A member of the RNA family "Small nucleolar RNA SNORD17" from Acipenser ruthenus, 228 nucleotides long. The family's consensus secondary structure was predicted with RNAalifold. The snoRNA HBI-43 belongs to the C/D family of snoRNAs, guiding 2'O-ribose methylation at position U3797 of the 28S rRNA. Pseudouridylation in position U3797 is predicted to be guided by the H/ACA snoRNA ACA48. The organism belongs to Acipenser, within Eukaryota. On this family, see Huttenhofer et al., EMBO J 2001: "RNomics: an experimental approach that identifies 201 candidates for novel, small, non-messenger RNAs in mouse".
[Rfam]
RNA sequence: CUGAGAUGAUGAAUAAGUUUAUCCAUUCUCUGAGUGCUGCUGGCCCCCUGUCUCUGCAGCACCAGAGUCUGUUCUAGGCCUGAGUGUCCUACAGCUCCCAGGUGCUGUUCUAGCAGUCCUGUGUUCUACUGGCUGCUGCUACUGGGGCUUGGUGAGCUGUUGCAGGAUAGGGGGGUCUGGCAGAGGUAGAAUCUACCUCAGCAAAGACGAGGUAUACGAUCUGAUCAC
Numbered sequence: 001c002u003g004a005g006a007u008g009a010u011g012a013a014u015a016a017g018u019u020u021a022u023c024c025a026u027u028c029u030c031u032g033a034g035u036g037c038u039g040c041u042g043g044c045c046c047c048c049u050g051u052c053u054c055u056g057c058a059g060c061a062c063c064a065g066a067g068u069c070u071g072u073u074c075u076a077g078g079c080c081u082g083a084g085u086g087u088c089c090u091a092c093a094g095c096u097c098c099c100a101g102g103u104g105c106u107g108u109u110c111u112a113g114c115a116g117u118c119c120u121g122u123g124u125u126c127u128a129c130u131g132g133c134u135g136c137u138g139c140u141a142c143u144g145g146g147g148c149u150u151g152g153u154g155a156g157c158u159g160u161u162g163c164a165g166g167a168u169a170g171g172g173g174g175g176u177c178u179g180g181c182a183g184a185g186g187u188a189g190a191a192u193c194u195a196c197c198u199c200a201g202c203a204a205a206g207a208c209g210a211g212g213u214a215u216a217c218g219a220u221c222u223g224a225u226c227a228c
Base pairs, nucleotide, nucleotide: 010227011226012225014223017220018219019218024212026211027210028209030206031205034202035201039181040180041179042178043176044175045174046173047172048171049170051167052166054165055164056163057162059088060086061085062084065080067079068078069077070076091160092159093158094157095156096155097154105145106144107142111138112137113136114135115134116133117132118131121129122128123127183199184198185197186196187195188194189193